[Rfam]
Nucleotides: 148
Base pairs, nucleotide, nucleotide: 002019003018004017005016006015007014027068028067029066030065031064033058034057035056036055038053039052040051041050042049043048081098082097084095085094086093099119100118101117102116106111123141124140125139126138127137128136
Number, partner (000 for none) and nucleotide at each position: 001000c002019c003018a004017g005016a006015u007014g008000u009000u010000u011000u012000g013000c014007c015006a016005u017004c018003u019002g020000a021000g022000u023000c024000u025000a026000c027068g028067c029066a030065u031064c032000a033058g034057u035056g036055c037000g038053a039052a040051u041050c042049g043048g044000g045000u046000a047000a048043c049042c050041g051040g052039u053038u054000g055036g056035u057034g058033c059000c060000a061000a062000g063000c064031g065030a066029u067028g068027c069000g070000g071000a072000c073000a074000a075000u076000g077000a078000a079000c080000c081098u082097c083000c084095u085094c086093u087000u088000g089000a090000a091000a092000a093086a094085g095084a096000a097082g098081a099119u100118g101117c102116u103000c104000a105000a106111u107000c108000g109000u110000g111106a112000a113000a114000g115000g116102a117101g118100c119099a120000u121000a122000a123141a124140c125139u126138a127137c128136a129000a130000g131000c132000a133000u134000c135000a136128u137127g138126u139125g140124g141123u142000u143000g144000g145000a146000g147000a148000g